A member of the RNA family "mir-29 microRNA precursor family" from Perca flavescens, 67 nucleotides long. About the family: This family represents the microRNA (miRNA) precursors mir-29. Taxonomically the source falls in Perca (Eukaryota, Metazoa, Actinopterygii, Actinopteri).
RNA sequence: GGCUGACCGUUUUCAUCUGGUGUUCAGAGUUUGCAUCAUGUCUAGCACCAUUUGAAAUCGGUUACAA
Numbered sequence: 001g002g003c004u005g006a007c008c009g010u011u012u013u014c015a016u017c018u019g020g021u022g023u024u025c026a027g028a029g030u031u032u033g034c035a036u037c038a039u040g041u042c043u044a045g046c047a048c049c050a051u052u053u054g055a056a057a058u059c060g061g062u063u064a065c066a067a
Stems, first nucleotide, its partner, number of pairs: 004064001005062001007061003011057005018050005026043003
Background:
The base pairs follow the family's consensus structure, which was predicted with PFOLD. A search with the family's covariance model found it, with a score of 58 bits. The literature on the family includes a 2001 paper in Cell by Ambros, "microRNAs: tiny regulators with great potential".